RNA sequence: CCCGGCAAUGAAUUGCCGGGCUGUCCUCAGCCGUCCCGGCGGGACU
Numbered sequence: 001c002c003c004g005g006c007a008a009u010g011a012a013u014u015g016c017c018g019g020g021c022u023g024u025c026c027u028c029a030g031c032c033g034u035c036c037c038g039g040c041g042g043g044a045c046u
Stems, first nucleotide, its partner, number of pairs: 001020008033045005
Shown here is a 46-nucleotide sequence from Desulfonema magnum, a member of the family "Acido-Lenti-1 RNA".
It is annotated as a small RNA.